[Rfam]
Record summary
The family of this 107-nucleotide RNA sequence is "cow-rumen-2 RNA". It is one of the family's seed sequences. It is annotated as a small RNA. The base pairs follow the family's consensus structure, which is taken from published work.
RNA sequence: AUCGAAGGUGAUAGUAGCGAUAUCAUCAUAAAAGCCGCCAUUGGCGUCAUGGAAUGUAGCCGGAGUACAGGAUGACCGACCCGUAAGUCCAUGAAUAAGUCCCGAGA
Numbered sequence: 001a002u003c004g005a006a007g008g009u010g011a012u013a014g015u016a017g018c019g020a021u022a023u024c025a026u027c028a029u030a031a032a033a034g035c036c037g038c039c040a041u042u043g044g045c046g047u048c049a050u051g052g053a054a055u056g057u058a059g060c061c062g063g064a065g066u067a068c069a070g071g072a073u074g075a076c077c078g079a080c081c082c083g084u085a086a087g088u089c090c091a092u093g094a095a096u097a098a099g100u101c102c103c104g105a106g107a
Base pairs, nucleotide, nucleotide: 002079007027008026009025010024011023012022013021041104043102044101045099047094048093049092050091051090052089053088061083062082063081066078070077071076